SAM riboswitch aptamer (S box leader): a 105-nucleotide sequence from Leeuwenhoekiella blandensis. Lineage of the source: Bacteria > Bacteroidota > Flavobacteriales > Leeuwenhoekiella > Leeuwenhoekiella blandensis.

[Rfam]
RNA sequence: AUGUUAUCAAGAAAGGCGGAGGGAAUAGACCCUAUGAAGCCUUAGCAACCCUUUCUCCCGAAAGAAGGUGCUACAUUCUAUCUGUUUUUGCAGAAUAGAUAACGC
Numbered sequence: 001a002u003g004u005u006a007u008c009a010a011g012a013a014a015g016g017c018g019g020a021g022g023g024a025a026u027a028g029a030c031c032c033u034a035u036g037a038a039g040c041c042u043u044a045g046c047a048a049c050c051c052u053u054u055c056u057c058c059c060g061a062a063a064g065a066a067g068g069u070g071c072u073a074c075a076u077u078c079u080a081u082c083u084g085u086u087u088u089u090g091c092a093g094a095a096u097a098g099a100u101a102a103c104g105c
Stems, first nucleotide, its partner, number of pairs: 002104007013043005021032003026080004044072004049068002051064004076097001081094005
The family's consensus secondary structure is taken from published work.